[Rfam]
RNA sequence: CCUCGUAGUGUCUGCGCAAGCAGAUACUGCGAGGGCUUCUUUCCGUCUUCAACGAGGGUCUGCUCGUG
Numbered sequence: 001c002c003u004c005g006u007a008g009u010g011u012c013u014g015c016g017c018a019a020g021c022a023g024a025u026a027c028u029g030c031g032a033g034g035g036c037u038u039c040u041u042u043c044c045g046u047c048u049u050c051a052a053c054g055a056g057g058g059u060c061u062g063c064u065c066g067u068g
Base pairs, nucleotide, nucleotide: 001034002033003032004031005030006029007028008027009026010025011024012023013022014021015020
A member of the RNA family "ClpQY promoter" from Serratia proteamaculans, 68 nucleotides long. A reference for the family is Lien et al. (2009), "Regulation of clpQ(+)Y(+) (hslV(+)U(+)) gene expression in Escherichia coli", Open Microbiol J. Gene Ontology term of the family: mRNA stabilization.